[Rfam]
RNA sequence: CACCACAAACACACCUUAGAUCUGUGCCCAGAUUUCCCGUUCACGGAGCAAUCUGUGUUUCGGUUGAGAGCUGGGCAGUUCGACGACAACGGAGCCAUACUCACUUGUGUAUGGCACACUUUACGGUUUCCUGUCGACAGAUCUCAGAUUAAAGCUCCGCGCCAGGCGUGGCCCGGGUCUUGAGCUCCCUCUGGUGAGCUCGGCUUGGGUCCUGGUUGUGGACGGCGUCAUAUUCCUGAUCCCUUUGCCGAUUGGCCGUUGGCUAGUGAGGCCAGGGAAUAACCAUGACUAGCCAACAUAC
Numbered sequence: 001c002a003c004c005a006c007a008a009a010c011a012c013a014c015c016u017u018a019g020a021u022c023u024g025u026g027c028c029c030a031g032a033u034u035u036c037c038c039g040u041u042c043a044c045g046g047a048g049c050a051a052u053c054u055g056u057g058u059u060u061c062g063g064u065u066g067a068g069a070g071c072u073g074g075g076c077a078g079u080u081c082g083a084c085g086a087c088a089a090c091g092g093a094g095c096c097a098u099a100c101u102c103a104c105u106u107g108u109g110u111a112u113g114g115c116a117c118a119c120u121u122u123a124c125g126g127u128u129u130c131c132u133g134u135c136g137a138c139a140g141a142u143c144u145c146a147g148a149u150u151a152a153a154g155c156u157c158c159g160c161g162c163c164a165g166g167c168g169u170g171g172c173c174c175g176g177g178u179c180u181u182g183a184g185c186u187c188c189c190u191c192u193g194g195u196g197a198g199c200u201c202g203g204c205u206u207g208g209g210u211c212c213u214g215g216u217u218g219u220g221g222a223c224g225g226c227g228u229c230a231u232a233u234u235c236c237u238g239a240u241c242c243c244u245u246u247g248c249c250g251a252u253u254g255g256c257c258g259u260u261g262g263c264u265a266g267u268g269a270g271g272c273c274a275g276g277g278a279a280u281a282a283c284c285a286u287g288a289c290u291a292g293c294c295a296a297c298a299u300a301c
Stems, first nucleotide, its partner, number of pairs: 018144008026076006033069004037063003042057006084136005091119001094115003155220001157218001161216006176205004182201006188194002224294003227289005240278005247272003254264004

The record is a 301-nucleotide RNA sequence from Penicillium atrosanguineum, which matches "A. fumigatus sRNA Afu_309" in Rfam. The organism belongs to Penicillium, within Eukaryota. The family has 10 seed sequences and 663 matches in Rfam 15.1. The family's consensus secondary structure was predicted with WAR. For this family Rfam cites "Small ncRNA transcriptome analysis from Aspergillus fumigatus suggests a novel mechanism for regulation of protein synthesis" (Jochl et al., Nucleic Acids Res, 2008).